[Rfam]
RNA: Glycine riboswitch aptamer
Organism: Alicycliphilus denitrificans
RNA sequence: CGUUUCCUUGCUGGAGAGAGGCGCCGCCGGCGCCCACCGAAGGAGCAACCCCCGCCGCCGCGGCAGGGCGAAUCUCUCAGGUAAAGAGGACAGCAGGGCAGAU
Numbered sequence: 001c002g003u004u005u006c007c008u009u010g011c012u013g014g015a016g017a018g019a020g021g022c023g024c025c026g027c028c029g030g031c032g033c034c035c036a037c038c039g040a041a042g043g044a045g046c047a048a049c050c051c052c053c054g055c056c057g058c059c060g061c062g063g064c065a066g067g068g069c070g071a072a073u074c075u076c077u078c079a080g081g082u083a084a085a086g087a088g089g090a091c092a093g094c095a096g097g098g099c100a101g102a103u
Base pairs, nucleotide, nucleotide: 006098007097008096009095010094011093012092013091020034021033022032023031036082037081038080039078040077043076044075045074050068051067052066